[Rfam]
RNA sequence: GAGGCCGAAACGCCGAAUCCCCGGGCCGCAACCAGCGCCCCGAGGAACCGGGGACCCACUUUCGGAGCGCUCAGGGGACCGCCCCUGGGAUGCCGCCGUGAGGGGUGAAUCCGCAGCCCGCGCGAAGCGAUUCGCACGCCUGCGGACGGGCUGCUCCAGCCCCAACCCGUCAGCUAACCCGGUAGGCGACAAGGAGAGGAGUA
Numbered sequence: 001g002a003g004g005c006c007g008a009a010a011c012g013c014c015g016a017a018u019c020c021c022c023g024g025g026c027c028g029c030a031a032c033c034a035g036c037g038c039c040c041c042g043a044g045g046a047a048c049c050g051g052g053g054a055c056c057c058a059c060u061u062u063c064g065g066a067g068c069g070c071u072c073a074g075g076g077g078a079c080c081g082c083c084c085c086u087g088g089g090a091u092g093c094c095g096c097c098g099u100g101a102g103g104g105g106u107g108a109a110u111c112c113g114c115a116g117c118c119c120g121c122g123c124g125a126a127g128c129g130a131u132u133c134g135c136a137c138g139c140c141u142g143c144g145g146a147c148g149g150g151c152u153g154c155u156c157c158a159g160c161c162c163c164a165a166c167c168c169g170u171c172a173g174c175u176a177a178c179c180c181g182g183u184a185g186g187c188g189a190c191a192a193g194g195a196g197a198g199g200a201g202u203a
Base pairs, nucleotide, nucleotide: 011188012187013186014185018046019045020044047183048182049181050180051179052178057102103168104167105166111145112144113143114142115141116140148162149161150160151159